Bacterial small subunit ribosomal RNA: a 585-nucleotide part of an RNA from Fodinibius salinus. It scores 1542 bits against the family's covariance model.
RNA sequence: UGACGGGGGCCCGCACAAGCGGUGGAGCAUGUGGCUUAAUUCGAUGCAACGCGAAGAACCUUACCUAGGCUAAAUCUGCGGGGAUCGCUCCUGAAAGGGAGUUUCCCUUCGGGGCCGCGCAGAAGGUGCUGCAUGGCUGUCGUCAGCUCGUGCCGUGAGGUGUUGGGUUAAGUCCCGCAACGAGCGCAACCCCUGUGGUUAGUUACCAGCACAUUAUGGUGGGGACUCUAGCCAGACUGCCUACGCAAGUAGUGAGGAAGGUGGGGACGACGUCAAGUCAUCAUGGCCCUUACGUCUAGGGCUGCACACGUGCUACAAUGGAUGGUCCAAUGGGAGGCAACCCCGCGAGGGCACGCCAAUCCCCAACACCAUUCCCAGUUCGGAUUGGAGUCUGCAACUCGACUCCAUGAAGUCGGAAUCGCUAGUAAUCGCGUAUCAGCAAUGUCGCGGUGAAUACGUUCCCGGGCCUUGUACACACCGCCCGUCAAGCGAUGGAAGUCAGCAGUACCUGAUACGGCUGUGCCAACCCUUUGGGAGGCAAGUCGGUAGGGUAAGGCUGGUGACUGGCGCUAAGUCGUAACAAGG
Number, nucleotide and partner (000 for none) at each position: 001u475002g474003a472004c471005g470006g000007g469008g468009g467010c466011c465012c464013g463014c000015a459016c458017a000018a000019g422020c421021g420022g419023u418024g316025g000026a314027g313028c312029a311030u310031g309032u308033g307034g305035c304036u000037u000038a000039a000040u055041u054042c053043g052044a000045u000046g000047c000048a000049a000050c000051g000052c043053g042054a041055a040056g000057a000058a000059c000060c000061u000062u000063a000064c300065c299066u298067a297068g296069g295070c294071u000072a000073a000074a000075u000076c122077u121078g000079c119080g118081g000082g116083g115084a000085u000086c000087g102088c101089u100090c099091c098092u097093g000094a000095a000096a000097g092098g091099g090100a089101g088102u087103u000104u000105c114106c113107c112108u000109u000110c000111g000112g107113g106114g105115c083116c082117g000118c080119g079120c000121a077122g076123a000124a000125g289126g288127u000128g287129c286130u285131g284132c000133a000134u283135g282136g278137c277138u276139g274140u000141c272142g271143u000144c000145a000146g185147c184148u183149c182150g181151u180152g161153c160154c159155g000156u000157g000158a000159g154160g153161u152162g000163u000164u177165g176166g175167g174168u000169u000170a000171a000172g000173u000174c167175c166176c165177g164178c000179a000180a151181c150182g149183a148184g147185c146186g000187c000188a000189a000190c000191c266192c265193c264194u263195g000196u234197g233198g232199u231200u230201a229202g228203u000204u000205a000206c223207c222208a000209g000210c221211a220212c219213a000214u000215u000216a000217u000218g000219g212220u211221g210222g207223g206224g000225a000226c000227u000228c202229u201230a200231g199232c198233c197234a196235g000236a000237c257238u256239g000240c254241c252242u251243a250244c249245g000246c000247a000248a000249g244250u243251a242252g241253u000254g240255a000256g238257g237258a000259a000260g000261g000262u000263g194264g193265g192266g191267a000268c000269g000270a000271c142272g141273u000274c139275a000276a138277g137278u136279c000280a000281u000282c135283a134284u131285g130286g129287c128288c126289c125290u000291u000292a000293c000294g070295u069296c068297u067298a066299g065300g064301g000302c000303u000304g035305c034306a000307c033308a032309c031310g030311u029312g028313c027314u026315a000316c024317a000318a000319u000320g374321g373322a372323u371324g370325g369326u368327c000328c000329a000330a000331u000332g363333g362334g361335a000336g000337g356338c355339a000340a000341c000342c351343c350344c349345g000346c000347g000348a000349g344350g343351g342352c000353a000354c000355g338356c337357c000358a000359a000360u000361c334362c333363c332364c000365a000366a000367c000368a326369c325370c324371a323372u322373u321374c320375c000376c000377a000378g000379u000380u000381c412382g000383g000384a000385u000386u407387g406388g405389a404390g403391u402392c401393u000394g000395c000396a000397a000398c000399u000400c000401g392402a391403c390404u389405c388406c387407a386408u000409g000410a000411a000412g381413u000414c000415g000416g000417a000418a023419u022420c021421g020422c019423u000424a000425g000426u000427a000428a451429u450430c449431g448432c447433g446434u000435a000436u000437c000438a000439g000440c000441a000442a000443u000444g000445u000446c433447g432448c431449g430450g429451u428452g000453a000454a000455u000456a000457c000458g016459u015460u000461c000462c000463c013464g012465g011466g010467c009468c008469u007470u005471g004472u003473a000474c002475a001476c000477a000478c584479c000480g581481c000482c000483c577484g576485u000486c000487a000488a571489g570490c569491g568492a000493u566494g565495g564496a000497a000498g561499u560500c559501a558502g557503c556504a000505g000506u553507a552508c551509c550510u000511g000512a000513u000514a000515c545516g544517g543518c542519u541520g000521u540522g539523c538524c537525a000526a000527c535528c534529c000530u000531u000532u000533g000534g528535g527536a000537g524538g523539c522540a521541a519542g518543u517544c516545g515546g000547u000548a000549g000550g509551g508552u507553a506554a000555g000556g503557c502558u501559g500560g499561u498562g000563a000564c495565u494566g493567g000568c491569g490570c489571u488572a000573a000574g000575u000576c484577g483578u000579a000580a000581c480582a000583a000584g478585g000